Nucleotides: 085
Base pairs, nucleotide, nucleotide: 002084003083004082005081006080007079009078010077011076012075013074014073016071017070018069019068020067021066022065023064027061028060029059030058031057032056033055034054035053036052037051
Number, partner (000 for none) and nucleotide at each position: 001000a002084u003083g004082c005081c006080g007079c008000u009078g010077u011076g012075u013074a014073g015000u016071a017070u018069g019068g020067c021066u022065u023064u024000u025000u026000a027061u028060u029059c030058c031057u032056a033055u034054g035053u036052g037051a038000u039000g040000a041000u042000g043000a044000a045000a046000g047000a048000u049000g050000u051037u052036c053035a054034u055033g056032u057031a058030g059029g060028a061027a062000c063000a064023g065022a066021a067020g068019c069018c070017a071016u072000u073014u074013u075012a076011c077010a078009u079007g080006u081005g082004g083003u084002g085000a

A member of the RNA family "mir-135 microRNA precursor family" from Parambassis ranga, 85 nucleotides long.
The family has 88 seed sequences and 2,125 matches in Rfam 15.1.
Lineage of the source: Eukaryota > Euteleostomi > Ovalentaria > Ambassidae > Parambassis.
Gene Ontology terms of the family: gene silencing by miRNA and RISC complex.
The family's consensus secondary structure was predicted with PFOLD.